[Rfam]
This 81-nucleotide RNA from Myotis lucifugus belongs to the Rfam family "mir-574 microRNA precursor family". Clan: mir-574 microRNA precursor clan. Lineage of the source: Eukaryota > Mammalia > Eutheria > Vespertilionidae > Myotis. For this family Rfam cites "Patterns of known and novel small RNAs in human cervical cancer" (Lui et al., Cancer Res, 2007). The match comes from Rfam's covariance-model search (94 bits). Rfam 15.1 lists 4,084 matches to the family in 7 species.

RNA sequence: AGACCCAGAGAGAGAGGCAGGGUCUAAUCUGCAGCCUCAGUGGCAGCUGUUGAUUAGUUCUUGCCUCUCUCUUUCUUUCCA
Numbered sequence: 001a002g003a004c005c006c007a008g009a010g011a012g013a014g015a016g017g018c019a020g021g022g023u024c025u026a027a028u029c030u031g032c033a034g035c036c037u038c039a040g041u042g043g044c045a046g047c048u049g050u051u052g053a054u055u056a057g058u059u060c061u062u063g064c065c066u067c068u069c070u071c072u073u074u075c076u077u078u079c080c081a
Stems, first nucleotide, its partner, number of pairs: 008073013022059001024057006032049004